[Rfam]
RNA sequence: GUUGCUUCUUAGAAUCUUAAUUGGUGAACUCUCUCAAAUUAAAUUAGAGAAGUUCAUGUUUAGAAGCAUAAAUCAACUGUGAACCAGUAUUAAACAGCAGGAUGCACUUUUCCCUUGCAUCAUUGUUACCUGUCUUCUGGUAUAUUU
Numbered sequence: 001g002u003u004g005c006u007u008c009u010u011a012g013a014a015u016c017u018u019a020a021u022u023g024g025u026g027a028a029c030u031c032u033c034u035c036a037a038a039u040u041a042a043a044u045u046a047g048a049g050a051a052g053u054u055c056a057u058g059u060u061u062a063g064a065a066g067c068a069u070a071a072a073u074c075a076a077c078u079g080u081g082a083a084c085c086a087g088u089a090u091u092a093a094a095c096a097g098c099a100g101g102a103u104g105c106a107c108u109u110u111u112c113c114c115u116u117g118c119a120u121c122a123u124u125g126u127u128a129c130c131u132g133u134c135u136u137c138u139g140g141u142a143u144a145u146u147u
Stems, first nucleotide, its partner, number of pairs: 003068006025056005030050005083141005089135001096127003101121004